Overview: A member of the RNA family "Small nucleolar RNA SNORD45" from Nannospalax galili, 82 nucleotides long. By type it is a C/D-box small nucleolar RNA. Pairs were carried over by alignment from the consensus structure, which was predicted with PFOLD.
[Rfam]
RNA sequence: GGUCAAUGAUGUACUGGCAUGUAUUAUCUGAAAUUGCUGAUGUGUGAUAACACUUGUAGCUCUAGAAUUACGCUGAGACCUU
Numbered sequence: 001g002g003u004c005a006a007u008g009a010u011g012u013a014c015u016g017g018c019a020u021g022u023a024u025u026a027u028c029u030g031a032a033a034u035u036g037c038u039g040a041u042g043u044g045u046g047a048u049a050a051c052a053c054u055u056g057u058a059g060c061u062c063u064a065g066a067a068u069u070a071c072g073c074u075g076a077g078a079c080c081u082u
Stems, first nucleotide, its partner, number of pairs: 001080004